[Rfam]
RNA sequence: ACAGAAUUCCCCGGGAGGAACUCCGUGAAAAUAGAAUAAAAAUAAUUAAUAUAGUAUGGAAUGAACGAAUAUGUUUCAAU
Dot-bracket structure: ......(((.(.(((.....))).).))).................................((((......))))....